RNA sequence: AACCUACAUAGUGAUAUGUAGCUGAACUAUCAGAAGUCAGCAGAAGUCAUAGUACCAGUUCAGUCAUGAAUGAACUGGGAAGGAC
Numbered sequence: 001a002a003c004c005u006a007c008a009u010a011g012u013g014a015u016a017u018g019u020a021g022c023u024g025a026a027c028u029a030u031c032a033g034a035a036g037u038c039a040g041c042a043g044a045a046g047u048c049a050u051a052g053u054a055c056c057a058g059u060u061c062a063g064u065c066a067u068g069a070a071u072g073a074a075c076u077g078g079g080a081a082g083g084a085c
Stems, first nucleotide, its partner, number of pairs: 001023001004021007037044002046085003055078008

The record is an 85-nucleotide sequence from Clostridium acetobutylicum, which matches "Group II catalytic intron D1-D4-1" in Rfam. The organism belongs to Clostridium acetobutylicum, within Bacteria. It is one of the family's seed sequences. Rfam's curators write: Group II introns are found in rRNA, tRNA and mRNA of organelles in fungi, plants and protists, and also in mRNA in bacteria.